[Rfam]
Shown here is a 194-nucleotide sequence from Pseudomonas brassicacearum, a member of the family "RgsA sRNA". The family's RNA type in Rfam is small RNA. The literature on the family includes a 2006 paper in Nucleic Acids Res by Livny et al., "Identification of 17 Pseudomonas aeruginosa sRNAs and prediction of sRNA-encoding genes in 10 diverse pathogens using the bioinformatic tool sRNAPredict2". From the family's description: This small RNA (sRNA) was computationally identified in the genome of the opportunistic pathogen Pseudomonas aeruginosa and its expression verified by northern blot analysis. P16 sRNA appears to be conserved across several Pseudomonas species and Azotobacter vinelandii. In these species it is consistently located downstream of a predicted TatD deoxyribonuclease gene. P16 has a predicted Rho independent terminator at the 3' end but the function of P16 is unknown. It has been shown that this sRNA is transcribed from an RpoS-dependent promoter under positive, probably indirect GacA control in two Pseudomonas species. It was renamed RgsA (for regulation by GacA and stress).RpoS mRNA expression is repressed by RgsA during the exponential phase. The Hfq RNA chaperone is required for the repression. Its family is annotated with response to oxidative stress, sRNA-mediated gene silencing and response to hydrogen peroxide in the Gene Ontology. Lineage of the source: Bacteria > Pseudomonadati > Pseudomonadaceae > Pseudomonas > Pseudomonas brassicacearum subsp. brassicacearum. It is one of the family's seed sequences.
RNA sequence: UAUCCGAAGCGAGCGUAUUCCAAAUUUGUUUAAAAACCGCCCCGGCCAGACUGGACGGGUUGGCAUACUGAUCAAUACUUGAACUGUCGGCGCGACAUCUCCCCCAAGUGACGCGCUGAUGAAGGUACCAACGGACCGCGUACCUUUGUUUUACUCCUAAUGGUCUUAACCCGGAUUCACCCCCCAGAACCCGG
Numbered sequence: 001u002a003u004c005c006g007a008a009g010c011g012a013g014c015g016u017a018u019u020c021c022a023a024a025u026u027u028g029u030u031u032a033a034a035a036a037c038c039g040c041c042c043c044g045g046c047c048a049g050a051c052u053g054g055a056c057g058g059g060u061u062g063g064c065a066u067a068c069u070g071a072u073c074a075a076u077a078c079u080u081g082a083a084c085u086g087u088c089g090g091c092g093c094g095a096c097a098u099c100u101c102c103c104c105c106a107a108g109u110g111a112c113g114c115g116c117u118g119a120u121g122a123a124g125g126u127a128c129c130a131a132c133g134g135a136c137c138g139c140g141u142a143c144c145u146u147u148g149u150u151u152u153a154c155u156c157c158u159a160a161u162g163g164u165c166u167u168a169a170c171c172c173g174g175a176u177u178c179a180c181c182c183c184c185c186a187g188a189a190c191c192c193g194g
Stems, first nucleotide, its partner, number of pairs: 039165001041163002086120004091115002094112001096110003121147008129138001171194004176189003